[Rfam]
RNA sequence: GGGGGUGCUCUGGUUUCGACAGGGCUGCUGAAGCGUGAGUUGCGUGCCGAGGGUCUGGCUGGCCUCGUAAAAAAGCCGGAAAACAAUAAGUGCUAACGAAGAUUACGCACUCGCUGCUUAAUUUAUAGCAACGCUGGAACUGGAGCCCCUCCCACGGGAUUCAGACCUCCAGUCGCAAUGUGGGAUAGGAUGGCGUCAUGCUCUGGGGCGACUUCCAAAAUUUACAGAGCUGGCUGGAACCUGCGCCGACCUUCUUGGGCGUAGAGACCGGUGAGACCUUAAAUACGAAGGGAACGCACGUAGGAAUGAACGGGGACGUGGUUUUGGACAGGAGUUCGACUCUCCUCACCUCCAUCU
Numbered sequence: 001g002g003g004g005g006u007g008c009u010c011u012g013g014u015u016u017c018g019a020c021a022g023g024g025c026u027g028c029u030g031a032a033g034c035g036u037g038a039g040u041u042g043c044g045u046g047c048c049g050a051g052g053g054u055c056u057g058g059c060u061g062g063c064c065u066c067g068u069a070a071a072a073a074a075g076c077c078g079g080a081a082a083a084c085a086a087u088a089a090g091u092g093c094u095a096a097c098g099a100a101g102a103u104u105a106c107g108c109a110c111u112c113g114c115u116g117c118u119u120a121a122u123u124u125a126u127a128g129c130a131a132c133g134c135u136g137g138a139a140c141u142g143g144a145g146c147c148c149c150u151c152c153c154a155c156g157g158g159a160u161u162c163a164g165a166c167c168u169c170c171a172g173u174c175g176c177a178a179u180g181u182g183g184g185a186u187a188g189g190a191u192g193g194c195g196u197c198a199u200g201c202u203c204u205g206g207g208g209c210g211a212c213u214u215c216c217a218a219a220a221u222u223u224a225c226a227g228a229g230c231u232g233g234c235u236g237g238a239a240c241c242u243g244c245g246c247c248g249a250c251c252u253u254c255u256u257g258g259g260c261g262u263a264g265a266g267a268c269c270g271g272u273g274a275g276a277c278c279u280u281a282a283a284u285a286c287g288a289a290g291g292g293a294a295c296g297c298a299c300g301u302a303g304g305a306a307u308g309a310a311c312g313g314g315g316a317c318g319u320g321g322u323u324u325u326g327g328a329c330a331g332g333a334g335u336u337c338g339a340c341u342c343u344c345c346u347c348a349c350c351u352c353c354a355u356c357u
Stems, first nucleotide, its partner, number of pairs: 001353007020326009034312003039307003043300005048067005054080007111131001113129004134172005140164004146158003150185006188216003192212001194210002200230005233272005241264002245260003250290001256285002330346005
The record is a 357-nucleotide RNA sequence from Hallerella succinigenes, which matches "transfer-messenger RNA" in Rfam. The family is grouped with related families in Rfam's "tRNA clan". Rfam's curators write: Bacterial tmRNA, also known as 10Sa RNA or SsrA, is named for its dual tRNA and mRNA-like properties. Its role is to liberate the mRNA from a stalled ribosome.